[Rfam]
che1 RNA: a 94-nucleotide sequence from Streptomyces sp. QHH-9511. NCBI's taxonomy places the organism under Bacteria, Bacillati, Actinomycetes, Streptomycetaceae, Streptomyces. By type it is a small RNA.
RNA sequence: UGGACAGGGGGGUUCCUGCUCUCACCGGCAGGGCCUGUCCAAGGAGGUUGCGCGCAAGGCGUGGCCAGUGGUUGUCGCUCGGGGGUGAUCGCCG
Numbered sequence: 001u002g003g004a005c006a007g008g009g010g011g012g013u014u015c016c017u018g019c020u021c022u023c024a025c026c027g028g029c030a031g032g033g034c035c036u037g038u039c040c041a042a043g044g045a046g047g048u049u050g051c052g053c054g055c056a057a058g059g060c061g062u063g064g065c066c067a068g069u070g071g072u073u074g075u076c077g078c079u080c081g082g083g084g085g086u087g088a089u090c091g092c093c094g
Stems, first nucleotide, its partner, number of pairs: 001041008014033007046066008